[Rfam]
RNA sequence: UGUCAAGCGUUGAAACUGUCGUUUUGACGGGCGGGUUUCUUUUGCCUGAUUGAAGGUGGAAGGACAUG
Numbered sequence: 001u002g003u004c005a006a007g008c009g010u011u012g013a014a015a016c017u018g019u020c021g022u023u024u025u026g027a028c029g030g031g032c033g034g035g036u037u038u039c040u041u042u043u044g045c046c047u048g049a050u051u052g053a054a055g056g057u058g059g060a061a062g063g064a065c066a067u068g
Stems, first nucleotide, its partner, number of pairs: 010063002017058004022054003026050001029047001031045005
A member of the RNA family "S-element" from Aquamicrobium lusatiense, 68 nucleotides long.
It scores 49 bits against the family's covariance model.
Rfam describes the family as follows. This family represents a group of S-elements from p42d and related plasmids. The S-element has multiple functions and is believed to act as a negative regulator of repC transcription, be required for efficient replication and act as a translational enhancer of repC.
Gene Ontology terms of the family: translation regulator activity and mRNA transcription.